The record is a 59-nucleotide RNA from Caenorhabditis nigoni, which matches "mir-7583 microRNA precursor family" in Rfam.
It scores 72 bits against the family's covariance model.
Lineage of the source: Eukaryota > Chromadorea > Rhabditomorpha > Rhabditidae > Caenorhabditis.

RNA sequence: AGCUACAAAUCUCGUGAUGGCAUUACAAGUUGCUCUUGCCAUCCGAAAUUUGUGGUUAA
Numbered sequence: 001a002g003c004u005a006c007a008a009a010u011c012u013c014g015u016g017a018u019g020g021c022a023u024u025a026c027a028a029g030u031u032g033c034u035c036u037u038g039c040c041a042u043c044c045g046a047a048a049u050u051u052g053u054g055g056u057u058a059a
Base pairs, nucleotide, nucleotide: 001057002056003055004054005053006052007051008050009049010048012046013045014044016043017042018041019040020039021038022037025034026032
Gene Ontology terms of the family: miRNA-mediated post-transcriptional gene silencing and RISC complex.